[Rfam]
RNA sequence: GGUCUGCUAUGAUGAACUGCAUGUUCUGUCCGUGUUUCACCUGAUAAACCAUGAUUAGAAACAUGCCCUGAGCAGAGC
Number, nucleotide and partner (000 for none) at each position: 001g078002g000003u076004c075005u074006g073007c072008u000009a000010u000011g000012a000013u000014g000015a000016a000017c000018u000019g000020c000021a000022u000023g000024u000025u000026c000027u000028g000029u000030c000031c000032g000033u000034g000035u000036u000037u000038c000039a000040c000041c000042u000043g000044a000045u000046a000047a000048a000049c000050c000051a000052u000053g000054a000055u000056u000057a000058g000059a000060a000061a000062c000063a000064u000065g000066c000067c000068c000069u000070g000071a000072g007073c006074a005075g004076a003077g000078c001

The family of this 78-nucleotide RNA from Pantherophis guttatus is "Small nucleolar RNA SNORD126".
Rfam links the family to the GO terms nucleolus and RNA processing.
Pairs were carried over by alignment from the consensus structure, which was predicted with WAR.
By type it is a C/D-box small nucleolar RNA.
A search with the family's covariance model found it, with a score of 75 bits.
Lineage of the source: Eukaryota > Eumetazoa > Deuterostomia > Euteleostomi > Pantherophis.